Description
Rfam assigns this 218-nucleotide RNA sequence from Streptomyces lydicus to the family "Streptomyces sRNA 4677". By type it is a small RNA. The family has 12 seed sequences and 563 matches in Rfam 15.1. The pairing is the family consensus, mapped onto this sequence. The literature on the family includes a 2014 paper in PLoS One by Hindra et al., "Complex intra-operonic dynamics mediated by a small RNA in Streptomyces coelicolor". A search with the family's covariance model found it, with a score of 84 bits. The organism belongs to Streptomyces, within Bacteria.
RNA sequence: CCCGCCGGUGACCCGGCCGACUACCCAAGAACCCGGGGAGAGAACCCACCCACCUACCGCCGCCCAACUCCUCACCCCAUUGGGUGACUUGGGCGCGAGGGCGUCCGGAAUGCGGUUACGCUCGCGGCAGCUCGACCACAACUGCACAUGGAACGGCCCUCGGCGGGACGGCAAUCCCAACCCGAGGGCCUGAUCACAAGGAAGAAAAGGCCUUCCCG
Numbered sequence: 001c002c003c004g005c006c007g008g009u010g011a012c013c014c015g016g017c018c019g020a021c022u023a024c025c026c027a028a029g030a031a032c033c034c035g036g037g038g039a040g041a042g043a044a045c046c047c048a049c050c051c052a053c054c055u056a057c058c059g060c061c062g063c064c065c066a067a068c069u070c071c072u073c074a075c076c077c078c079a080u081u082g083g084g085u086g087a088c089u090u091g092g093g094c095g096c097g098a099g100g101g102c103g104u105c106c107g108g109a110a111u112g113c114g115g116u117u118a119c120g121c122u123c124g125c126g127g128c129a130g131c132u133c134g135a136c137c138a139c140a141a142c143u144g145c146a147c148a149u150g151g152a153a154c155g156g157c158c159c160u161c162g163g164c165g166g167g168a169c170g171g172c173a174a175u176c177c178c179a180a181c182c183c184g185a186g187g188g189c190c191u192g193a194u195c196a197c198a199a200g201g202a203a204g205a206a207a208a209g210g211c212c213u214u215c216c217c218g
Base pairs, nucleotide, nucleotide: 008197009196010195016060018059019058072087073086074085075084076083077082094126095125096124097123098122155190156189157188158187159186161184162183163182165178166177167176168175200216201215202214203213204212
Notes
Rfam describes the family as follows. Located in the intergenic region between anti-sigma factor SCO4677 gene and a putative regulatory protein gene SCO4676. scr4677 expression requires the SCO4677 activity and scr4677 sRNA itself seem to affect the levels of the SCO4676-associated transcripts.